[Rfam]
RNA sequence: AAUCCCUAUGAAGAACGUCUUAUUGAAAUAAAAGUAGUGGCCUGAUGUCCAUUGAUGAUAGCCUUGUUCUGAGGGAUU
Numbered sequence: 001a002a003u004c005c006c007u008a009u010g011a012a013g014a015a016c017g018u019c020u021u022a023u024u025g026a027a028a029u030a031a032a033a034g035u036a037g038u039g040g041c042c043u044g045a046u047g048u049c050c051a052u053u054g055a056u057g058a059u060a061g062c063c064u065u066g067u068u069c070u071g072a073g074g075g076a077u078u
Stems, first nucleotide, its partner, number of pairs: 001078006
RNA: Small nucleolar RNA R21
Organism: Sesamum indicum